[Rfam]
RNA: MIR821 microRNA precursor family
Organism: Oryza glumipatula
RNA sequence: GAUUUCAAAUGGAAAAGUCAUCAACAGGAAAGUUGUAUAACUCAUCAAGAUCUAUAACUUUUAUUUUGGUCAUUUCUUCAUCCGACAAAGUGAUAGUAAUACUGUUUACAAAAUUGAUAUAUCUGUGUUGAUGUUUAAACCAGAUGAGAGAUAUGUGAUUUUUGUAAAGAAUAUUACUAUCACUUUGUCGGAUGAAAAAAUGACCAAAAUAAAAGUUAUAGACCUUGAUGAGUUAUACAACUUUGCUGUUGAUGACUUUUCCAUUUGAAAUC
Numbered sequence: 001g002a003u004u005u006c007a008a009a010u011g012g013a014a015a016a017g018u019c020a021u022c023a024a025c026a027g028g029a030a031a032g033u034u035g036u037a038u039a040a041c042u043c044a045u046c047a048a049g050a051u052c053u054a055u056a057a058c059u060u061u062u063a064u065u066u067u068g069g070u071c072a073u074u075u076c077u078u079c080a081u082c083c084g085a086c087a088a089a090g091u092g093a094u095a096g097u098a099a100u101a102c103u104g105u106u107u108a109c110a111a112a113a114u115u116g117a118u119a120u121a122u123c124u125g126u127g128u129u130g131a132u133g134u135u136u137a138a139a140c141c142a143g144a145u146g147a148g149a150g151a152u153a154u155g156u157g158a159u160u161u162u163u164g165u166a167a168a169g170a171a172u173a174u175u176a177c178u179a180u181c182a183c184u185u186u187g188u189c190g191g192a193u194g195a196a197a198a199a200a201u202g203a204c205c206a207a208a209a210u211a212a213a214a215g216u217u218a219u220a221g222a223c224c225u226u227g228a229u230g231a232g233u234u235a236u237a238c239a240a241c242u243u244u245g246c247u248g249u250u251g252a253u254g255a256c257u258u259u260u261c262c263a264u265u266u267g268a269a270a271u272c
Base pairs, nucleotide, nucleotide: 014259015258016257017256018255019254020253021252023250024249026247027246030243031242032241033240034239035238036237037236038235039234040233041232042231044229045228046227047226048225049224051222052221053220055218056217057216058215059214060213061212062211063210064209065208066207067206069204070203071202072201073200074199075198077196078195079194080193081192083190084189085188086187087186088185089184090183091182092181094179095178096177097176098175099174101172103170105168106167107166108165109164110163111162112161115158117156118155119154120153121152122151133140134139